[Rfam]
RNA sequence: UGGGCCAGUGAUGAGGCCAUGUCUGGGAACAAAGGAGCGUGAUGAAUCCAGUCCUGCGCAAAAUACUGAGGUCCAUU
Numbered sequence: 001u002g003g004g005c006c007a008g009u010g011a012u013g014a015g016g017c018c019a020u021g022u023c024u025g026g027g028a029a030c031a032a033a034g035g036a037g038c039g040u041g042a043u044g045a046a047u048c049c050a051g052u053c054c055u056g057c058g059c060a061a062a063a064u065a066c067u068g069a070g071g072u073c074c075a076u077u
Base pairs, nucleotide, nucleotide: 001075002074003073004072005071006070

Rfam assigns this 77-nucleotide sequence from Oryctolagus cuniculus to the family "Small nucleolar RNA SNORD112".
Taxonomically the source falls in Oryctolagus (Eukaryota, Metazoa, Gnathostomata, Glires).
Rfam classes the family as a C/D-box small nucleolar RNA.
The match comes from Rfam's covariance-model search (79 bits).
Gene Ontology terms of the family: nucleolus and RNA processing.